[Rfam]
RNA sequence: GCCGAGCUCGGUAACGCGGGCUUGUGACCCAAGUGGGGGCACUAAGGUGUUGGGAUAUUGUGCUGGUUCAGAUGGUGGGACUUGAUGGUAUUAAAUACUGGCCCACCCUAUCCAAGCCGAGAGUUAGGCCUUGAGGUUUGAGCGAAAGCUUGGGUCUCAUGGCUCUUAGAGAGGAGGGCAAUGCGUCAGGCUGGUUCCACAGAGCAGCGAGAACUUCCCGCUCUCGGCAGUGGAAGGAUAAUGGGCCGGUGCACUUCAAGUCCAUCAUUACCUGAAGGGCCUGCUCGACUUAGACCAACACCCUU
Number, nucleotide and partner (000 for none) at each position: 001g040002c039003c038004g023005a022006g021007c020008u019009c018010g017011g000012u000013a000014a000015c000016g000017c010018g009019g008020g007021c006022u005023u004024g000025u000026g000027a000028c037029c036030c035031a000032a000033g000034u000035g030036g029037g028038g003039g002040c001041a000042c000043u000044a304045a000046g302047g301048u300049g299050u298051u297052g296053g295054g000055a000056u292057a291058u000059u288060g000061u000062g284063c283064u000065g281066g280067u000068u278069c277070a000071g000072a000073u000074g272075g271076u270077g269078g263079g262080a261081c260082u259083u258084g257085a256086u000087g255088g254089u253090a000091u000092u251093a250094a000095a000096u000097a000098c249099u248100g247101g246102c245103c244104c243105a242106c000107c237108c236109u000110a000111u234112c233113c232114a231115a000116g228117c227118c226119g225120a224121g223122a222123g221124u220125u000126a000127g164128g163129c162130c161131u000132u159133g158134a157135g156136g155137u154138u153139u152140g151141a150142g149143c148144g000145a000146a000147a000148g143149c142150u141151u140152g139153g138154g137155u136156c135157u134158c133159a132160u000161g130162g129163c128164u127165c000166u171167u000168a000169g000170a000171g166172a000173g218174g217175a216176g215177g214178g000179c000180a000181a000182u211183g000184c209185g208186u207187c000188a000189g000190g000191c202192u201193g200194g000195u000196u000197c000198c000199a000200c193201a192202g191203a000204g000205c000206a000207g186208c185209g184210a000211g182212a000213a000214c177215u176216u175217c174218c173219c000220g124221c123222u122223c121224u120225c119226g118227g117228c116229a000230g000231u114232g113233g112234a111235a000236g108237g107238a000239u000240a000241a000242u105243g104244g103245g102246c101247c100248g099249g098250u093251g092252c000253a089254c088255u087256u085257c084258a083259a082260g081261u080262c079263c078264a000265u000266c000267a000268u000269u077270a076271c075272c074273u000274g000275a000276a000277g069278g068279g000280c066281c065282u000283g063284c062285u000286c000287g000288a059289c000290u000291u057292a056293g000294a000295c053296c052297a051298a050299c049300a048301c047302c046303c000304u044305u000